[Rfam]
RNA sequence: CGUAUCCGGUAGUCUGCAUCCAAGAUUCAACCUACCAUGGAUCAUAAACAUAGUACUGUACAUGAUCCGAGGUUGGUUGAAUCUGUGGAUGUGGAACAUGUGGAUAC
Numbered sequence: 001c002g003u004a005u006c007c008g009g010u011a012g013u014c015u016g017c018a019u020c021c022a023a024g025a026u027u028c029a030a031c032c033u034a035c036c037a038u039g040g041a042u043c044a045u046a047a048a049c050a051u052a053g054u055a056c057u058g059u060a061c062a063u064g065a066u067c068c069g070a071g072g073u074u075g076g077u078u079g080a081a082u083c084u085g086u087g088g089a090u091g092u093g094g095a096a097c098a099u100g101u102g103g104a105u106a107c
Stems, first nucleotide, its partner, number of pairs: 002107006015093008023084010034073003038069004043064003
mir-9080 microRNA precursor family: a 107-nucleotide RNA from Equus caballus. Gene Ontology terms of the family: RISC complex and miRNA-mediated post-transcriptional gene silencing. Pairs were carried over by alignment from the consensus structure, which was predicted with RNAalifold.